Shown here is a 127-nucleotide RNA sequence from Brenneria rubrifaciens, a member of the family "Phenylalanine leader peptide".
It scores 84 bits against the family's covariance model.
Gene Ontology term of the family: cellular amino acid metabolic process.
Lineage of the source: Bacteria > Gammaproteobacteria > Enterobacterales > Pectobacteriaceae > Brenneria.
RNA sequence: GCAAGUAUGCAUACUGCUAUUUUCCGUUUCUUUUUUUACUUUAGCGCCUGAACUCAGGGGGGCUUUGCGCGUAAGAAAAGAAACGAAAAGUAGCGCCUAAGCCUCCCUCAGGGGAGGCUUUUUUGUU
Dot-bracket structure: ...............((((.(((.((((((((((.((((.......(((......))).(.((...)).))))).)))))))))).))).))))....(((((((((....))))))))).......